[Rfam]
RNA: Selenocysteine insertion sequence 1
Organism: Anabas testudineus
RNA sequence: UUUACUUGAUGAAGACAUCCUCUAAAACCAUGAUGUGAGGAGGGUAUCUGAUAAAAUGUAAA
Numbered sequence: 001u002u003u004a005c006u007u008g009a010u011g012a013a014g015a016c017a018u019c020c021u022c023u024a025a026a027a028c029c030a031u032g033a034u035g036u037g038a039g040g041a042g043g044g045u046a047u048c049u050g051a052u053a054a055a056a057u058g059u060a061a062a
Base pairs, nucleotide, nucleotide: 001062002061003060004059005058014048015047017045018044019043020042021041022040023039029037030036031035